[Rfam]
RNA sequence: GAAAAAGCAGGGUCUUGUUGCAUUUUGCGAGUGUGGUUUUCGUCAACUUCAGGAAAAUUACUUGGAUUGUUAUUAGGCGAACCUCUAGAUCUUCUUGGUGACUGAAGGUUCAGUAAAUGAUGCCACAUUU
Numbered sequence: 001g002a003a004a005a006a007g008c009a010g011g012g013u014c015u016u017g018u019u020g021c022a023u024u025u026u027g028c029g030a031g032u033g034u035g036g037u038u039u040u041c042g043u044c045a046a047c048u049u050c051a052g053g054a055a056a057a058u059u060a061c062u063u064g065g066a067u068u069g070u071u072a073u074u075a076g077g078c079g080a081a082c083c084u085c086u087a088g089a090u091c092u093u094c095u096u097g098g099u100g101a102c103u104g105a106a107g108g109u110u111c112a113g114u115a116a117a118u119g120a121u122g123c124c125a126c127a128u129u130u
Base pairs, nucleotide, nucleotide: 005049006048007047011038012037014035016033017032066121067120068119069118070117071116079111080110081109082108083107084106